This 128-nucleotide RNA sequence from Brassica cretica belongs to the Rfam family "MIR9563 microRNA precursor family". The organism belongs to Brassica, within Eukaryota.
RNA sequence: GGAAUAUAAGAAUCCGUCUCUCUUAACUUUUAACUAAAAAAGCUAAGAACUGGUUUUUAAAACUCUUAUUUAAGAGCUGAUUCUUAACUUUUUUUAAUUAAAAGUUAAGAGAUGGAUUCUUAUAUUCC
Numbered sequence: 001g002g003a004a005u006a007u008a009a010g011a012a013u014c015c016g017u018c019u020c021u022c023u024u025a026a027c028u029u030u031u032a033a034c035u036a037a038a039a040a041a042g043c044u045a046a047g048a049a050c051u052g053g054u055u056u057u058u059a060a061a062a063c064u065c066u067u068a069u070u071u072a073a074g075a076g077c078u079g080a081u082u083c084u085u086a087a088c089u090u091u092u093u094u095u096a097a098u099u100a101a102a103a104g105u106u107a108a109g110a111g112a113u114g115g116a117u118u119c120u121u122a123u124a125u126u127c128c
Stems, first nucleotide, its partner, number of pairs: 001128018021110013035096007044086006